[Rfam]
RNA sequence: GGCCGUGUGCCCGAGUGGUUCAGGGAACCGUCUGCAAAACGGUUUACACGGGUUCGAUUCCCGUCAUGGCCU
Number, nucleotide and partner (000 for none) at each position: 001g071002g070003c069004c068005g067006u066007g065008u000009g000010c025011c024012c023013g000014a000015g000016u000017g000018g000019u000020u000021c000022a000023g012024g011025g010026a000027a043028c042029c041030g040031u039032c000033u000034g000035c000036a000037a000038a000039a031040c030041g029042g028043u027044u000045u000046a000047c000048a064049c063050g062051g061052g060053u000054u000055c000056g000057a000058u000059u000060c052061c051062c050063g049064u048065c007066a006067u005068g004069g003070c002071c001072u000